[Rfam]
RNA sequence: AUCUUUGUGCUUGGGGCAAUGAGGCAGCUAGAGAGGUUAUACCGAGGCGCGUCAAUUGCUGAUUGAAAACUAUUUCUAAACCCCCUCUUUGACUCUCACGGGUCAUUGAGAAUUUUUGGAAGGGUUCCCUCUUUGAGGGUAAAACC
Number, nucleotide and partner (000 for none) at each position: 001a000002u000003c000004u000005u000006u000007g000008u000009g000010c000011u000012u000013g000014g000015g000016g000017c000018a000019a000020u000021g053022a052023g000024g050025c049026a000027g048028c047029u046030a000031g000032a000033g000034a000035g043036g042037u041038u000039a000040u000041a037042c036043c035044g000045a000046g029047g028048c027049g025050c024051g000052u022053c021054a000055a000056u000057u000058g000059c000060u000061g000062a000063u000064u000065g000066a000067a000068a000069a000070c000071u000072a000073u000074u000075u000076c000077u000078a000079a000080a000081c000082c000083c000084c000085c110086u109087c108088u000089u000090u105091g104092a103093c102094u101095c100096u000097c000098a000099c000100g095101g094102g093103u092104c091105a090106u000107u000108g087109a086110g085111a000112a000113u000114u000115u000116u000117u000118g000119g000120a000121a000122g000123g146124g145125u144126u143127c000128c000129c000130u000131c000132u000133u000134u000135g000136a000137g000138g000139g000140u000141a000142a000143a126144a125145c124146c123
Shown here is a 146-nucleotide RNA sequence from Triticum aestivum, a member of the family "U4 spliceosomal RNA". It is annotated as a spliceosomal small nuclear RNA. Lineage of the source: Eukaryota > Streptophyta > Poales > Triticeae > Triticum. Its Rfam clan is "U4 clan".